[Rfam]
RNA sequence: AGCAAACUAAGGGCGUAUGGGGGAUGCCUAGGCUCUCAGAGGCGAAGAAGGACGUGAUAAGCUGCGAAAAGCUGCGGGGAUUGGCACACACGAUAUGAUCCGCAGAUAUCCGAAUGGGGCAACCCGUUGUGUUGAAGACACAACAUUCCGAAAGGAAGGCGAACCUGCUGAACUGAAACAUCUAAGUAGGCAGAGGAGAAGAAAACAAAAGUGAUUCCGAUAGUAGUGGCGAGCGAACUCGGAUUAGCCCAAACCAAUGUUGUUUCGGCAAUAUUGGGGUUGUAGGACCACGAUAUUUUAAGCAAAGAGAAUUAGAAUCAUCUGGAAAGAUGAACCGCAGAGGGUGAUAGUCCCGUAUAAGUAAUCGCUGUAUUAGAUAGUGGUAUCCUGAGUAGGUCGGGGCACGUGAAACCCUGAUUGAAUUCGGCGGGACCAUCCGCUAAGGCUAAAUACUCCUGAGAGACCGAUAGAGAACCAGUACCGUGAGGGAAAGGUGAAAAGCACCGUGAAUAACGGGGUGAAAUAGAACCUGAAACCAUACGCCUACAAG
Numbered sequence: 001a002g003c004a005a006a007c008u009a010a011g012g013g014c015g016u017a018u019g020g021g022g023g024a025u026g027c028c029u030a031g032g033c034u035c036u037c038a039g040a041g042g043c044g045a046a047g048a049a050g051g052a053c054g055u056g057a058u059a060a061g062c063u064g065c066g067a068a069a070a071g072c073u074g075c076g077g078g079g080a081u082u083g084g085c086a087c088a089c090a091c092g093a094u095a096u097g098a099u100c101c102g103c104a105g106a107u108a109u110c111c112g113a114a115u116g117g118g119g120c121a122a123c124c125c126g127u128u129g130u131g132u133u134g135a136a137g138a139c140a141c142a143a144c145a146u147u148c149c150g151a152a153a154g155g156a157a158g159g160c161g162a163a164c165c166u167g168c169u170g171a172a173c174u175g176a177a178a179c180a181u182c183u184a185a186g187u188a189g190g191c192a193g194a195g196g197a198g199a200a201g202a203a204a205a206c207a208a209a210a211g212u213g214a215u216u217c218c219g220a221u222a223g224u225a226g227u228g229g230c231g232a233g234c235g236a237a238c239u240c241g242g243a244u245u246a247g248c249c250c251a252a253a254c255c256a257a258u259g260u261u262g263u264u265u266c267g268g269c270a271a272u273a274u275u276g277g278g279g280u281u282g283u284a285g286g287a288c289c290a291c292g293a294u295a296u297u298u299u300a301a302g303c304a305a306a307g308a309g310a311a312u313u314a315g316a317a318u319c320a321u322c323u324g325g326a327a328a329g330a331u332g333a334a335c336c337g338c339a340g341a342g343g344g345u346g347a348u349a350g351u352c353c354c355g356u357a358u359a360a361g362u363a364a365u366c367g368c369u370g371u372a373u374u375a376g377a378u379a380g381u382g383g384u385a386u387c388c389u390g391a392g393u394a395g396g397u398c399g400g401g402g403c404a405c406g407u408g409a410a411a412c413c414c415u416g417a418u419u420g421a422a423u424u425c426g427g428c429g430g431g432a433c434c435a436u437c438c439g440c441u442a443a444g445g446c447u448a449a450a451u452a453c454u455c456c457u458g459a460g461a462g463a464c465c466g467a468u469a470g471a472g473a474a475c476c477a478g479u480a481c482c483g484u485g486a487g488g489g490a491a492a493g494g495u496g497a498a499a500a501g502c503a504c505c506g507u508g509a510a511u512a513a514c515g516g517g518g519u520g521a522a523a524u525a526g527a528a529c530c531u532g533a534a535a536c537c538a539u540a541c542g543c544c545u546a547c548a549a550g
Stems, first nucleotide, its partner, number of pairs: 011545010026530001027494002031465002033462007040454002042160002050111003053066003072105007081093003116125003126144007146157004164195001165193005175182002205212002215450001216243005226234002246447004254277007284389003288383004298376004305369001309365001312360003318333005336340001342354003395419008426441005481488002504516004
RNA: Bacterial large subunit ribosomal RNA, nucleotides 8 to 557